[Rfam]
RNA: TPP riboswitch aptamer (THI element)
RNA sequence: AAUCUGUGCUAGGGGGGCUGGUUAUGCCAGCUGAGAUAGAGAACGUUAUUCUCUGACUCUUAACACCUGAACUGGUUAGAACCAGCGUAGGGAAGCAACAAUAAUUUUGU
Numbered sequence: 001a002a003u004c005u006g007u008g009c010u011a012g013g014g015g016g017g018c019u020g021g022u023u024a025u026g027c028c029a030g031c032u033g034a035g036a037u038a039g040a041g042a043a044c045g046u047u048a049u050u051c052u053c054u055g056a057c058u059c060u061u062a063a064c065a066c067c068u069g070a071a072c073u074g075g076u077u078a079g080a081a082c083c084a085g086c087g088u089a090g091g092g093a094a095g096c097a098a099c100a101a102u103a104a105u106u107u108u109g110u
Base pairs, nucleotide, nucleotide: 007097008096009095010094011060012059013058014057017031018030019029020028021027038054039053040052041051042050066091067090068089069088072085073084074083075082